[Rfam]
This 93-nucleotide RNA sequence from Rhodococcoides fascians belongs to the Rfam family "TPP riboswitch aptamer (THI element)".
RNA sequence: GACCGCGACACGGGGUGCCCGUCAGGGCUGAGAUCACACCCGUCGAACCUGAUCUGGUUAGGACCAGCGAAGGGAAUGUCGUGACGUUUCGGU
Numbered sequence: 001g002a003c004c005g006c007g008a009c010a011c012g013g014g015g016u017g018c019c020c021g022u023c024a025g026g027g028c029u030g031a032g033a034u035c036a037c038a039c040c041c042g043u044c045g046a047a048c049c050u051g052a053u054c055u056g057g058u059u060a061g062g063a064c065c066a067g068c069g070a071a072g073g074g075a076a077u078g079u080c081g082u083g084a085c086g087u088u089u090c091g092g093u
Base pairs, nucleotide, nucleotide: 006081007080008079009078010077011042012041013040014039016036017028018027019026020025048073049072050071054067055066056065057064